[Rfam]
RNA sequence: GGUUGAGCAUAUGCUUUCAAGGAUUUUUCUUCAGGGGCGGGAAGAA
Numbered sequence: 001g002g003u004u005g006a007g008c009a010u011a012u013g014c015u016u017u018c019a020a021g022g023a024u025u026u027u028u029c030u031u032c033a034g035g036g037g038c039g040g041g042a043a044g045a046a
Stems, first nucleotide, its partner, number of pairs: 003020003006015003027046006
Dot-bracket structure: ..((((((....)))..)))......((((((........))))))

Rfam assigns this 46-nucleotide RNA from Carnobacterium sp. 17-4 to the family "Na+ riboswitch aptamer (DUF1646)". A reference for the family is White et al. (2022), "Na(+) riboswitches regulate genes for diverse physiological processes in bacteria", Nat Chem Biol. The organism belongs to Carnobacterium, within Bacteria. The family's consensus secondary structure is taken from published work.